[Rfam]
RNA sequence: CGGGUAGUAUCCCUCCGGGGAACUGCACCAAAGGUCGCAUCAAAAUUUAAUUUUUAAGGAUUCCGCUUGGAGCCGGAUGGACCGAGACGGGAGG
Numbered sequence: 001c002g003g004g005u006a007g008u009a010u011c012c013c014u015c016c017g018g019g020g021a022a023c024u025g026c027a028c029c030a031a032a033g034g035u036c037g038c039a040u041c042a043a044a045a046u047u048u049a050a051u052u053u054u055u056a057a058g059g060a061u062u063c064c065g066c067u068u069g070g071a072g073c074c075g076g077a078u079g080g081a082c083c084g085a086g087a088c089g090g091g092a093g094g
Stems, first nucleotide, its partner, number of pairs: 002029002004026005010021002063090003066086005073080002
Annotation
pan motif: a 94-nucleotide sequence from Desulforamulus ruminis. Taxonomically the source falls in Desulforamulus ruminis (Bacteria, Bacillati, Clostridia, Eubacteriales). The match comes from Rfam's covariance-model search (60 bits).